[Rfam]
RNA: Bacterial large subunit ribosomal RNA, nucleotides 1313 to 1632
Organism: Prosthecobacter gellanilyticus
RNA sequence: GUUAAGACGUGUGAAAUCCACGUCCGCCGUAAACCCAAGGUUUCCUGGGCAACGACCUUCGUCCCAGGGUUAGUCGGGAGCUAAGUCCAGGCCAGAUGGCGUAGGCGAUGCACAGCAGGUUAAUAUUCCUGCACCGGUGAUGGUUAAAGUACAGGUUCUCGGAACUUGAGAGAGCAUGCCGAUUGAAAGUGGCAGAAAGGUGCGGAGCGAUCCAAUCCUGGUCUCUUGAUCUGACCGACUAGAAAAGCCUGUGCCCCUUUCCAUGGCCGCCCGUACCGCAAACCGACACAGGUGGGUGAGUAGAAUAUACUAAGGCGUAA
Number, nucleotide and partner (000 for none) at each position: 001g000002u000003u000004a000005a000006g024007a023008c022009g021010u020011g019012u000013g000014a000015a000016a000017u000018c000019c011020a010021c009022g008023u007024c006025c317026g316027c315028c314029g000030u000031a000032a000033a297034c296035c295036c294037a000038a000039g277040g276041u000042u000043u000044c068045c067046u066047g065048g064049g063050c000051a000052a000053c061054g060055a000056c000057c000058u000059u000060c054061g053062u000063c049064c048065c047066a046067g045068g044069g000070u000071u000072a000073g000074u000075c273076g272077g271078g270079a000080g111081c110082u000083a000084a000085g106086u105087c104088c000089a102090g000091g100092c099093c098094a000095g000096a000097u000098g093099g092100c091101g000102u089103a000104g087105g086106c085107g000108a000109u000110g081111c080112a000113c000114a000115g132116c131117a130118g129119g128120u000121u000122a000123a000124u000125a000126u000127u000128c119129c118130u117131g116132c115133a000134c000135c269136g268137g267138u266139g000140a264141u263142g262143g261144u000145u000146a000147a000148a000149g254150u000151a252152c251153a250154g249155g248156u247157u000158c000159u238160c237161g236162g235163a000164a000165c000166u000167u000168g000169a000170g227171a226172g225173a224174g223175c000176a000177u194178g193179c192180c191181g000182a000183u000184u000185g000186a000187a000188a000189g000190u000191g180192g179193c178194a177195g000196a000197a000198a000199g000200g000201u000202g000203c000204g000205g000206a000207g000208c000209g000210a000211u000212c000213c000214a000215a000216u000217c000218c000219u000220g000221g000222u000223c174224u173225c172226u171227u170228g000229a000230u000231c000232u000233g000234a000235c162236c161237g160238a159239c000240u000241a000242g000243a000244a000245a000246a000247g156248c155249c154250u153251g152252u151253g000254c149255c000256c000257c000258u000259u000260u000261c143262c142263a141264u140265g000266g138267c137268c136269g135270c078271c077272c076273g075274u000275a000276c040277c039278g000279c000280a000281a000282a000283c292284c291285g000286a000287c000288a000289c000290a000291g284292g283293u000294g036295g035296g034297u033298g000299a311300g310301u309302a308303g000304a000305a000306u000307a000308u302309a301310c300311u299312a000313a000314g028315g027316c026317g025318u000319a000320a000